This 71-nucleotide RNA sequence from Caenorhabditis briggsae belongs to the Rfam family "RNA-OUT". A search with the family's covariance model found it, with a score of 43 bits. Transposition of insertion sequence IS10 is regulated by an anti-sense RNA which inhibits transposase expression when IS10 is present in multiple copies per cell. The anti-sense RNA (RNA-OUT) consists of a stem domain topped by a flexibly paired loop; the 5' end of the target molecule, RNA-IN, is complementary to the top of the loop, and complementarity extends for 35 base-pairs down one side of RNA-OUT. This bacterial RNA is also found in the genomic sequence of eukaryotic organisms. This is probably due to vector contamination. It is annotated as an antisense RNA.
RNA sequence: UCGUGCAUUUUGUCGUCAAAUUUAAUGUUUUUCGACUGGAACAUCGAAAUUUCCGACAAAAUGCACAUAAA
Numbered sequence: 001u002c003g004u005g006c007a008u009u010u011u012g013u014c015g016u017c018a019a020a021u022u023u024a025a026u027g028u029u030u031u032u033c034g035a036c037u038g039g040a041a042c043a044u045c046g047a048a049a050u051u052u053c054c055g056a057c058a059a060a061a062u063g064c065a066c067a068u069a070a071a
Stems, first nucleotide, its partner, number of pairs: 003066013018051002037046003
Source information: The base pairs follow the family's consensus structure, which was predicted with PFOLD.